The record is a 131-nucleotide RNA from Serinicoccus chungangensis, which matches "FMN riboswitch aptamer (RFN element)" in Rfam. From the family's description: The RFN element is a highly conserved domain that is found frequently in the 5'-untranslated regions of prokaryotic mRNAs that encode for flavin mononucleotide (FMN) biosynthesis and transport proteins. The base pairs follow the family's consensus structure, which is taken from published work.
RNA sequence: AUACGCGCUCCGGGGUCGGUGCAACUCCGAGCCGGCGGUGACAGUCCGCGACCCGACCGCAGCCAGCGGCCGGUUGACCUGGUGCAACUCCAGGACCGACGGUGAAAGUCCGGAAGGGAGGCAGCGCGGGU
Numbered sequence: 001a002u003a004c005g006c007g008c009u010c011c012g013g014g015g016u017c018g019g020u021g022c023a024a025c026u027c028c029g030a031g032c033c034g035g036c037g038g039u040g041a042c043a044g045u046c047c048g049c050g051a052c053c054c055g056a057c058c059g060c061a062g063c064c065a066g067c068g069g070c071c072g073g074u075u076g077a078c079c080u081g082g083u084g085c086a087a088c089u090c091c092a093g094g095a096c097c098g099a100c101g102g103u104g105a106a107a108g109u110c111c112g113g114a115a116g117g118g119a120g121g122c123a124g125c126g127c128g129g130g131u
Base pairs, nucleotide, nucleotide: 004128005127006126007125008124009123010120017029018028019027031109032108033098034097035049036048037047038046044096045095053073054072078094079093080092081091082090100112101111102110